[Rfam]
RNA sequence: GCGGCUGUGGCGGAACUGGUAGACGCGCAGCGUUGAGGGCGCUGUGGGGGUAACCCCGUGCAGGUUCAAGUCCUGCCAGCCGCA
Numbered sequence: 001g002c003g004g005c006u007g008u009g010g011c012g013g014a015a016c017u018g019g020u021a022g023a024c025g026c027g028c029a030g031c032g033u034u035g036a037g038g039g040c041g042c043u044g045u046g047g048g049g050g051u052a053a054c055c056c057c058g059u060g061c062a063g064g065u066u067c068a069a070g071u072c073c074u075g076c077c078a079g080c081c082g083c084a
Stems, first nucleotide, its partner, number of pairs: 001083007010026003028044005060076005

A member of the RNA family "tRNA" from Limimonas halophila, 84 nucleotides long. NCBI's taxonomy places the organism under Bacteria, Pseudomonadati, Rhodospirillales, Rhodovibrionaceae, Limimonas. The family is grouped with related families in Rfam's "tRNA clan". Rfam classes the family as a transfer RNA.